This 74-nucleotide sequence from Octodon degus belongs to the Rfam family "U1A polyadenylation inhibition element (PIE)". A reference for the family is Clerte and Hall (2004), "Global and Local Dynamics of the U1A Polyadenylation Inhibition Element (PIE) RNA and PIE RNA-U1A Complexes", Biochemistry. The base pairs follow the family's consensus structure, which is taken from published work. The family has 39 seed sequences and 510 matches in Rfam 15.1. The family's RNA type in Rfam is cis-regulatory element. Rfam describes the family as follows. This family represents the U1A polyadenylation inhibition element (PIE). Lineage of the source: Eukaryota > Craniata > Boreoeutheria > Rodentia > Octodon. Rfam links the family to the GO term regulation of mRNA polyadenylation.
RNA sequence: CCAUGCAGCAUUGCACCCAGAAUCUGACCCCAGACAUUGUGCCUGGUGUGGUUAGGUUGGAAUUAAAGUAGUUU
Numbered sequence: 001c002c003a004u005g006c007a008g009c010a011u012u013g014c015a016c017c018c019a020g021a022a023u024c025u026g027a028c029c030c031c032a033g034a035c036a037u038u039g040u041g042c043c044u045g046g047u048g049u050g051g052u053u054a055g056g057u058u059g060g061a062a063u064u065a066a067a068g069u070a071g072u073u074u
Stems, first nucleotide, its partner, number of pairs: 005052002008049002017046004023034004